[Rfam]
RNA: Mammalian CPEB3 ribozyme
RNA sequence: CGCAAGUUUGAGGCCAUAGCAGAAGCGCUCACGGCGUGGGCUGUCCGAUUCCAACAAAACUGCAAAUUCUGCU
Numbered sequence: 001c002g003c004a005a006g007u008u009u010g011a012g013g014c015c016a017u018a019g020c021a022g023a024a025g026c027g028c029u030c031a032c033g034g035c036g037u038g039g040g041c042u043g044u045c046c047g048a049u050u051c052c053a054a055c056a057a058a059a060c061u062g063c064a065a066a067u068u069c070u071g072c073u
Stems, first nucleotide, its partner, number of pairs: 012041001014039002018073007025037003045062001047060001049058002